[Rfam]
RNA sequence: GCAGAAGAUAGAGGCGCGGAUUUGAAGAGUAGCAGAGCUUGAGGCUGCCAAAGCCGGUGACAGUCUGUAAAAGGAAAAUUCGCCGAAGGGAUGGCUUGGAACAGCAAUUCCUGGUUGAGUGUGUGAAACAUCGACUCAACUGUCGUCAUAGAAUUAUGAUGGAGCGCUAUCGGCAAG
Number, nucleotide and partner (000 for none) at each position: 001g000002c000003a000004g000005a000006a000007g171008a170009u169010a168011g167012a000013g000014g000015c000016g083017c082018g081019g080020a079021u078022u077023u076024g000025a000026a000027g000028a000029g000030u000031a000032g068033c067034a066035g065036a064037g000038c063039u062040u000041g000042a000043g000044g000045c000046u000047g000048c000049c000050a000051a000052a000053g000054c000055c000056g000057g000058u000059g000060a000061c000062a039063g038064u036065c035066u034067g033068u032069a000070a000071a000072a000073g000074g000075a000076a023077a022078a021079u020080u019081c018082g017083c016084c000085g000086a000087a112088g111089g110090g109091a108092u107093g000094g105095c104096u103097u000098g000099g000100a000101a000102c000103a096104g095105c094106a000107a092108u091109u090110c089111c088112u087113g141114g140115u139116u138117g137118a136119g135120u134121g000122u000123g131124u000125g000126a000127a000128a000129c000130a000131u123132c000133g000134a120135c119136u118137c117138a116139a115140c114141u113142g000143u162144c161145g160146u159147c158148a157149u156150a000151g000152a000153a000154u000155u000156a149157u148158g147159a146160u145161g144162g143163a000164g000165c000166g000167c011168u010169a009170u008171c007172g000173g000174c000175a000176a000177g000